The record is a 131-nucleotide RNA from Myotis lucifugus, which matches "Small Cajal body specific RNA 8" in Rfam. A search with the family's covariance model found it, with a score of 63 bits. On this family, see Darzacq et al., EMBO J 2002: "Cajal body-specific small nuclear RNAs: a novel class of 2'-O-methylation and pseudouridylation guide RNAs". Taxonomically the source falls in Myotis (Eukaryota, Eumetazoa, Deuterostomia, Amniota). scaRNAs are a specific class of small nuclear RNAs which localise to the Cajal bodies and guide the modification of RNA polymerase II transcribed spliceosomal RNAs U1, U2, U4, U5 and U12. U92 belong to the H/ACA box class of guide RNAs as it has the predicted hairpin-hinge-hairpin-tail structure, conserved H/ACA-box motifs and is found associated with GAR1.

[Rfam]
RNA sequence: GGGGAGGCUGCUGCACAAAUUGGGCUGAAGUACUGCUCUCAUUGUCCCUGUACCUCCCUAGAAUAAUCUGCCUUUUAGCAAAAUAAAUCUCAUAGACAUCAAGGAUUCAUACGUUCUCAGGGCUGGAAGAU
Number, nucleotide and partner (000 for none) at each position: 001g000002g058003g057004g056005a055006g054007g053008c000009u000010g000011c000012u000013g000014c000015a045016c044017a043018a042019a000020u000021u000022g038023g037024g036025c035026u000027g000028a000029a000030g000031u000032a000033c000034u000035g025036c024037u023038c022039u000040c000041a000042u018043u017044g016045u015046c000047c000048c000049u000050g000051u000052a000053c007054c006055u005056c004057c003058c002059u000060a000061g000062a000063a000064u000065a000066a000067u000068c125069u000070g123071c122072c121073u120074u119075u000076u000077a000078g000079c000080a000081a000082a000083a000084u000085a000086a000087a000088u000089c000090u000091c000092a000093u000094a000095g000096a000097c000098a000099u000100c000101a000102a000103g000104g000105a000106u000107u000108c000109a000110u000111a000112c000113g000114u000115u000116c000117u000118c000119a074120g073121g072122g071123c070124u000125g068126g000127a000128a000129g000130a000131u000